RNA: ZMP/ZTP riboswitch aptamer (pfl RNA motif)
RNA sequence: UGACCGGGUCGCGACUGGCGAAGGUGGGUCACCACCGGGGAGCGGCGAGCAGCAGCAGACUCUUGGGUCGUCCGCCUGGGCCCGCGGU
Numbered sequence: 001u002g003a004c005c006g007g008g009u010c011g012c013g014a015c016u017g018g019c020g021a022a023g024g025u026g027g028g029u030c031a032c033c034a035c036c037g038g039g040g041a042g043c044g045g046c047g048a049g050c051a052g053c054a055g056c057a058g059a060c061u062c063u064u065g066g067g068u069c070g071u072c073c074g075c076c077u078g079g080g081c082c083c084g085c086g087g088u
Stems, first nucleotide, its partner, number of pairs: 005049001008046005015039002017076004024035004065083005
Dot-bracket structure: ....(..(((((..(([[[[...((((....))))..))..)))))..)...............(((((...]]]]..))))).....